ALIL pseudoknot: a 160-nucleotide sequence from Sagittula salina. It scores 51 bits against the family's covariance model. The literature on the family includes a 2008 paper in J Biol Chem by Mazauric et al., "Apical loop-internal loop RNA pseudoknots: a new type of stimulator of -1 translational frameshifting in bacteria". By type it is a cis-regulatory element. The source organism's lineage runs through Bacteria, Alphaproteobacteria, Rhodobacterales, Roseobacteraceae and Sagittula.

[Rfam]
RNA sequence: GGCGUAUUUUGCGAUGGCGGAGCUCGACCGCCAGCCGAAGCGAUGGUGGAUUUCAUUCACCGCCCGGCAGGGUAUUUCCGAAGGAAAUAUCCCGAGAGGGGAGGCGCAUCGUGAUGCGCAUGGGGUCAAGCCGAUCUGCGCGGUGCUGCCGAUUGCCCCU
Dot-bracket structure: ...............(((((.......................................))))).........................................................((((......((.((.(((......))).)).)))))).